[Rfam]
RNA sequence: GCAGGAAGCCUGUGAUGUCGUAGCCGUGGUGUCUGAACCUGGCUGAAGUACUCUCCUGAAGACUCACUCUUUGGCUCUGAGGCUUCCAGGGGA
Dot-bracket structure: ...(((((((......................................................................)))))))......